[Rfam]
traJ-II RNA: a 102-nucleotide sequence from Halomonas sp. PA5.
The base pairs follow the family's consensus structure, which is taken from published work.
It is annotated as a cis-regulatory element.
RNA sequence: UGGCAGGAUGUGCACUGUAGGCCUACGCCGCAAGCGGCUGGCCAACAAUGCAUAGUGUUUACUCGCCUUUGGGGCUCGCCACAGGUCCUGCUCUGCGAGGCA
Numbered sequence: 001u002g003g004c005a006g007g008a009u010g011u012g013c014a015c016u017g018u019a020g021g022c023c024u025a026c027g028c029c030g031c032a033a034g035c036g037g038c039u040g041g042c043c044a045a046c047a048a049u050g051c052a053u054a055g056u057g058u059u060u061a062c063u064c065g066c067c068u069u070u071g072g073g074g075c076u077c078g079c080c081a082c083a084g085g086u087c088c089u090g091c092u093c094u095g096c097g098a099g100g101c102a
Stems, first nucleotide, its partner, number of pairs: 002092008012051003016047002020043002025039001027038004056083003065075004